[Rfam]
RNA sequence: CAUAGUCUUUGGGGCAGGUGAGAUUCCUGAUCGGCGGUGAUAGUCCGCGAGCGUAAGCAUGAACUGGUGUAACUCCAGUACCGACGGUAUAGUCCGGAUGGAAAAAGAUGAUG
Numbered sequence: 001c002a003u004a005g006u007c008u009u010u011g012g013g014g015c016a017g018g019u020g021a022g023a024u025u026c027c028u029g030a031u032c033g034g035c036g037g038u039g040a041u042a043g044u045c046c047g048c049g050a051g052c053g054u055a056a057g058c059a060u061g062a063a064c065u066g067g068u069g070u071a072a073c074u075c076c077a078g079u080a081c082c083g084a085c086g087g088u089a090u091a092g093u094c095c096g097g098a099u100g101g102a103a104a105a106a107g108a109u110g111a112u113g
Stems, first nucleotide, its partner, number of pairs: 003111001005109006016028003030093002032083002034048004043081002063079005085096003

The record is a 113-nucleotide sequence from Intestinibaculum porci, which matches "FMN riboswitch aptamer (RFN element)" in Rfam. The source organism's lineage runs through Bacteria, Erysipelotrichia, Erysipelotrichales, Erysipelotrichaceae and Intestinibaculum.